RNA sequence: UCGGGAGAGGUUCGUUAGCUACCCUCUAUAAAAAACUAAGGAAGA
Numbered sequence: 001u002c003g004g005g006a007g008a009g010g011u012u013c014g015u016u017a018g019c020u021a022c023c024c025u026c027u028a029u030a031a032a033a034a035a036c037u038a039a040g041g042a043a044g045a
Stems, first nucleotide, its partner, number of pairs: 006027005015038001
Description: PreQ1 (pre queuosine) riboswitch aptamer: a 45-nucleotide RNA from Paenibacillus abyssi. This family is a bacterial riboswitch that binds to the metabolite preQ1, an intermediate in the biosynthesis of the modified nucleoside queuosine from GTP. One example of this riboswitch is located in the leader of the Bacillus subtilis ykvJKLM (queCDEF) operon which encodes four genes necessary for queuosine production. PreQ1 binding to the riboswitch aptamer is thought to induce premature transcription termination within the leader to down-regulate expression of these genes. Taxonomically the source falls in Paenibacillus (Bacteria, Bacillota, Caryophanales, Paenibacillaceae). On this family, see Reader et al., J Biol Chem 2004: "Identification of four genes necessary for biosynthesis of the modified nucleoside queuosine". The base pairs follow the family's consensus structure.